[Rfam]
RNA sequence: UAUUCAUUUACGGGAGAGACUACAAACUUAUUGUAGCGCCGAAGGAGCAACCACCCAGGAAUCUCUCAGGCAAAAAGGACCGUAACGUAUUA
Number, nucleotide and partner (000 for none) at each position: 001u000002a000003u000004u000005c000006a000007u000008u085009u084010a083011c082012g081013g080014g000015a000016g000017a000018g000019a000020c036021u035022a034023c033024a000025a000026a000027c000028u000029u000030a000031u000032u000033g023034u022035a021036g020037c000038g071039c070040c069041g067042a066043a000044g000045g065046a064047g063048c000049a000050a000051c058052c000053a000054c000055c000056c000057a000058g051059g000060a000061a000062u000063c047064u046065c045066u042067c041068a000069g040070g039071c038072a000073a000074a000075a000076a000077g000078g000079a000080c013081c012082g011083u010084a009085a008086c000087g000088u000089a000090u000091u000092a000
A member of the RNA family "Glycine riboswitch aptamer" from Pelagibacterales bacterium SAG-MED48, 92 nucleotides long. A search with the family's covariance model found it, with a score of 66 bits.